[Rfam]
RNA: gltS RNA
Organism: Vibrionales bacterium SWAT-3
RNA sequence: UAUCACCAAGGAUUGUUUUUCUCGCAAUACUUUUCCUGCGAGAUACGGAAAGGAUUCAAACCGCCAACAUAGGCAGGUUUAGACUCAUAAAUAUAAAAGGACAAG
Numbered sequence: 001u002a003u004c005a006c007c008a009a010g011g012a013u014u015g016u017u018u019u020u021c022u023c024g025c026a027a028u029a030c031u032u033u034u035c036c037u038g039c040g041a042g043a044u045a046c047g048g049a050a051a052g053g054a055u056u057c058a059a060a061c062c063g064c065c066a067a068c069a070u071a072g073g074c075a076g077g078u079u080u081a082g083a084c085u086c087a088u089a090a091a092u093a094u095a096a097a098a099g100g101a102c103a104a105g
Base pairs, nucleotide, nucleotide: 020043021042022041023040024039025038026037059079060078061077062076063074064073065072